[Rfam]
A member of the RNA family "Glycine riboswitch aptamer" from Pseudoleptotrichia goodfellowii, 108 nucleotides long.

RNA sequence: AUGAAAAAUGCGUGAGAGCCUCUUAGAUAUUAUCAGAGCACCGAAGGGACAAGUUGAUAAUCUGCAAUUAUUAAUGAAAUUCUCAGGUAAACAGAACGUAUUUGGACA
Numbered sequence: 001a002u003g004a005a006a007a008a009u010g011c012g013u014g015a016g017a018g019c020c021u022c023u024u025a026g027a028u029a030u031u032a033u034c035a036g037a038g039c040a041c042c043g044a045a046g047g048g049a050c051a052a053g054u055u056g057a058u059a060a061u062c063u064g065c066a067a068u069u070a071u072u073a074a075u076g077a078a079a080u081u082c083u084c085a086g087g088u089a090a091a092c093a094g095a096a097c098g099u100a101u102u103u104g105g106a107c108a
Stems, first nucleotide, its partner, number of pairs: 006103008020038004040088003043084002047082003053075009

The organism belongs to Pseudoleptotrichia goodfellowii, within Bacteria. Rfam links the family to the GO term glycine biosynthetic process.